[Rfam]
RNA: Xanthine riboswitch aptamer (NMT1 RNA)
Organism: Tepidicella xavieri
RNA sequence: ACACGGAGUAGAAGCGUUCAGCCGCCGUCAUCACGGCAGCCCGGAAAUUGCUCUGAGG
Numbered sequence: 001a002c003a004c005g006g007a008g009u010a011g012a013a014g015c016g017u018u019c020a021g022c023c024g025c026c027g028u029c030a031u032c033a034c035g036g037c038a039g040c041c042c043g044g045a046a047a048u049u050g051c052u053c054u055g056a057g058g
Stems, first nucleotide, its partner, number of pairs: 005054006015043001018045002021040002024037004